Shown here is a 62-nucleotide RNA from Rattus norvegicus, a member of the family "Gag/pol translational readthrough site".
On this family, see Wills et al., EMBO J 1994: "Pseudoknot-dependent read-through of retroviral gag termination codons: importance of sequences in the spacer and loop 2".
Gene Ontology term of the family: viral translational readthrough.
RNA sequence: UAGGGAGGAUGGGGUCCGGACCCCCUCCCUGAGCCCACAGUAACCUUGAAAGUGGAGGGGAA
Numbered sequence: 001u002a003g004g005g006a007g008g009a010u011g012g013g014g015u016c017c018g019g020a021c022c023c024c025c026u027c028c029c030u031g032a033g034c035c036c037a038c039a040g041u042a043a044c045c046u047u048g049a050a051a052g053u054g055g056a057g058g059g060g061a062a
Base pairs, nucleotide, nucleotide: 008041010039012036013035014034015033016031018029019028022060023059024058025057026056027055
Dot-bracket structure: .......[.[.[[[[[.[[..((((((]].].]]]]..].].............))))))..